[Rfam]
RNA sequence: CGGCGCGAGCCGGAGUGUCAGUCCCCGGCAGCGCCUAACCACGCCAGUUCUGGAAAGGAGAACAGCAUGGCUUU
Dot-bracket structure: .(((((..(((((.(.......).))))).)))))...(((.....(((((.......)))))....)))....
RNA: R1162-like plasmid antisense RNA